[Rfam]
RNA sequence: GGCUGGUCCUAAGGUAGCGAGUUAUCUCAAUCGACUGUUCACAGUCAGUUACAGAUCAACCUCCUUGUUCUACUCUUUCCCUUCUUCCACUACUCCACUUGACUAGUCUAAA
Numbered sequence: 001g002g003c004u005g006g007u008c009c010u011a012a013g014g015u016a017g018c019g020a021g022u023u024a025u026c027u028c029a030a031u032c033g034a035c036u037g038u039u040c041a042c043a044g045u046c047a048g049u050u051a052c053a054g055a056u057c058a059a060c061c062u063c064c065u066u067g068u069u070c071u072a073c074u075c076u077u078u079c080c081c082u083u084c085u086u087c088c089a090c091u092a093c094u095c096c097a098c099u100u101g102a103c104u105a106g107u108c109u110a111a112a
Base pairs, nucleotide, nucleotide: 001108002107003106004105005104006103007102008101011099014096016091017090019088021086043074044073045072047071048070
This 112-nucleotide RNA sequence from Homo sapiens belongs to the Rfam family "Y RNA". The family has 104 seed sequences and 26,986 matches in Rfam 15.1. Y RNAs are components of the Ro ribonucleoprotein particle (Ro RNP), in association with Ro60 and La proteins. The Y RNAs and Ro60 and La proteins are well conserved, but the function of the Ro RNP is not known. In humans the RNA component can be one of four small RNAs -- hY1, hY3, hY4 and hY5. These small RNAs are predicted to fold into a conserved secondary structure containing three stem structures. The largest of the four, hY1, contains an additional hairpin. This family includes a significant number of annotated pseudogenes and the model is expected to discriminate poorly between real and Y RNA related pseudogenes. It is annotated as a non-coding RNA gene. NCBI's taxonomy places the organism under Eukaryota, Vertebrata, Gnathostomata, Simiiformes, Homo.